[Rfam]
RNA sequence: AUUCUUGGGUAAAUGUGUGCCCCCCUUGAUCGUGAGAUCCUGUGGAAACAUCGGGUGAAUUGCAAGGACCUCCAAUAUAAAUGAUAUUGGACAAUUUGCAGCGAAGCGUAUAUCAGUGUUUUAUAGGUAUACGAACGUUCAACGACUAAUCAGUGAGCAACACUAGCAAUAAUCUGGACACCAGAUGCCCGACAACUUCAAUAUUGAGUUAUUGAUGUUGAUGACAUAGUCUGAACAAUCUGGUAACAGAUUG
Numbered sequence: 001a002u003u004c005u006u007g008g009g010u011a012a013a014u015g016u017g018u019g020c021c022c023c024c025c026u027u028g029a030u031c032g033u034g035a036g037a038u039c040c041u042g043u044g045g046a047a048a049c050a051u052c053g054g055g056u057g058a059a060u061u062g063c064a065a066g067g068a069c070c071u072c073c074a075a076u077a078u079a080a081a082u083g084a085u086a087u088u089g090g091a092c093a094a095u096u097u098g099c100a101g102c103g104a105a106g107c108g109u110a111u112a113u114c115a116g117u118g119u120u121u122u123a124u125a126g127g128u129a130u131a132c133g134a135a136c137g138u139u140c141a142a143c144g145a146c147u148a149a150u151c152a153g154u155g156a157g158c159a160a161c162a163c164u165a166g167c168a169a170u171a172a173u174c175u176g177g178a179c180a181c182c183a184g185a186u187g188c189c190c191g192a193c194a195a196c197u198u199c200a201a202u203a204u205u206g207a208g209u210u211a212u213u214g215a216u217g218u219u220g221a222u223g224a225c226a227u228a229g230u231c232u233g234a235a236c237a238a239u240c241u242g243g244u245a246a247c248a249g250a251u252u253g
Stems, first nucleotide, its partner, number of pairs: 007022005028038001030036001051192004056187002061100006071091005101138002108132002114127001142232001144231005195218002198215006238251005

Group I catalytic intron: a 253-nucleotide RNA from Auanema sp. JU1783. A search with the family's covariance model found it, with a score of 94 bits.